[Rfam]
Description: The record is a 46-nucleotide RNA sequence, which matches "Mu-gpT-DE RNA" in Rfam.
RNA sequence: CCCUGACAGCGAAAGCUGACACUAGCCAAGACAGGAGUAUCACAUG
Dot-bracket structure: .((((.((((....)))).............))))...........

By type it is a small RNA. Rfam's curators put it in the seed alignment.